RNA sequence: AUUUUAUUUAAAAUCUUGUUGUACAAAGCUACUUAUUUCAUAAAUAUAAAUAAAAUAGGGAUUUGUUUGAGGCGAUAGUUUUAGUUGGUAGGCGCCAGCAGGCAACACCUGCUGGUGAAUCCAACAGUACCCGCACUUCCAUCGCGUAUGUCUUUUUGAACAUUUCUUCUCGUCCUUC
Numbered sequence: 001a002u003u004u005u006a007u008u009u010a011a012a013a014u015c016u017u018g019u020u021g022u023a024c025a026a027a028g029c030u031a032c033u034u035a036u037u038u039c040a041u042a043a044a045u046a047u048a049a050a051u052a053a054a055a056u057a058g059g060g061a062u063u064u065g066u067u068u069g070a071g072g073c074g075a076u077a078g079u080u081u082u083a084g085u086u087g088g089u090a091g092g093c094g095c096c097a098g099c100a101g102g103c104a105a106c107a108c109c110u111g112c113u114g115g116u117g118a119a120u121c122c123a124a125c126a127g128u129a130c131c132c133g134c135a136c137u138u139c140c141a142u143c144g145c146g147u148a149u150g151u152c153u154u155u156u157u158g159a160a161c162a163u164u165u166c167u168u169c170u171c172g173u174c175c176u177u178c
Stems, first nucleotide, its partner, number of pairs: 020046003052177002071174004077167002084125005093117010127151001128148003
Shown here is a 178-nucleotide RNA sequence from Callosobruchus maculatus, a member of the family "R2 RNA element".
This family represents the 3' UTR region of the R2 retrotransposable element.
It scores 42 bits against the family's covariance model.
The source organism's lineage runs through Eukaryota, Metazoa, Coleoptera, Bruchinae and Callosobruchus.